Background:
The family of this 93-nucleotide RNA from Artemisia annua is "MIR2275 microRNA precursor family". Gene Ontology terms of the family: miRNA-mediated post-transcriptional gene silencing and RISC complex. The organism belongs to Artemisia, within Eukaryota.

RNA sequence: AUGUUGGAAGUGAGAAUUGGUGGGCACUAAACAAAUUUGUCUCCAAUGUUGUAUGAGUUUGUUUAGUUUCCUCCAAUAUCUCAUCUCCGACUU
Numbered sequence: 001a002u003g004u005u006g007g008a009a010g011u012g013a014g015a016a017u018u019g020g021u022g023g024g025c026a027c028u029a030a031a032c033a034a035a036u037u038u039g040u041c042u043c044c045a046a047u048g049u050u051g052u053a054u055g056a057g058u059u060u061g062u063u064u065a066g067u068u069u070c071c072u073c074c075a076a077u078a079u080c081u082c083a084u085c086u087c088c089g090a091c092u093u
Stems, first nucleotide, its partner, number of pairs: 004090005011083004016077005023070002026067005032061002